[Rfam]
RNA sequence: AAUCAUAUGAUGGGGGCAUGCGUCUUGAAGAUUAUUAAAGCGUUCCAAGUAUUCAUAGAGGGUCUCAAAUUCAUCCUGAACGAUUAUAGACAUGUCCUUCCUCAGCUU
Numbered sequence: 001a002a003u004c005a006u007a008u009g010a011u012g013g014g015g016g017c018a019u020g021c022g023u024c025u026u027g028a029a030g031a032u033u034a035u036u037a038a039a040g041c042g043u044u045c046c047a048a049g050u051a052u053u054c055a056u057a058g059a060g061g062g063u064c065u066c067a068a069a070u071u072c073a074u075c076c077u078g079a080a081c082g083a084u085u086a087u088a089g090a091c092a093u094g095u096c097c098u099u100c101c102u103c104a105g106c107u108u
Stems, first nucleotide, its partner, number of pairs: 001108001004105001007102001058075002061072001
Source information:
This 108-nucleotide RNA from Arachis hypogaea belongs to the Rfam family "Plant small nucleolar RNA R71". Rfam 15.1 lists 278,378 matches to the family in 216 species. The organism belongs to Arachis, within Eukaryota. The family's RNA type in Rfam is C/D-box small nucleolar RNA.